[Rfam]
RNA sequence: AUACUUACCUGGCGUAGGGGACACCGUGAUCAUGAAGGCGGUUCCCCCAGGGCGAGGUCCUAUCAUUGCACUGCGAUAGGGUUGACCCCUGCGAUUAUCCCUAAUGUGGAUAACUCGGACGCGUUAUUUUUGGUAGUGGGGACUGCGUACGCGCCGUCCCCUA
Numbered sequence: 001a002u003a004c005u006u007a008c009c010u011g012g013c014g015u016a017g018g019g020g021a022c023a024c025c026g027u028g029a030u031c032a033u034g035a036a037g038g039c040g041g042u043u044c045c046c047c048c049a050g051g052g053c054g055a056g057g058u059c060c061u062a063u064c065a066u067u068g069c070a071c072u073g074c075g076a077u078a079g080g081g082u083u084g085a086c087c088c089c090u091g092c093g094a095u096u097a098u099c100c101c102u103a104a105u106g107u108g109g110a111u112a113a114c115u116c117g118g119a120c121g122c123g124u125u126a127u128u129u130u131u132g133g134u135a136g137u138g139g140g141g142a143c144u145g146c147g148u149a150c151g152c153g154c155c156g157u158c159c160c161c162u163a
Stems, first nucleotide, its partner, number of pairs: 012122004017047005023042005049090004054086001056083003060079005092117003095113003099109002138161005145154003